Shown here is a 68-nucleotide RNA sequence from Allobacillus sp. SKP2-8, a member of the family "Bacillaceae-1 RNA".
[Rfam]
RNA sequence: AAUAAAAGAAAUUCCACAAAAACCGCACACGUCCUGUGUGCAACGGGGAAACCAACACAUCCUGUAGA
Dot-bracket structure: ...........((((.(........(((((.....)))))....).))))......((.....))...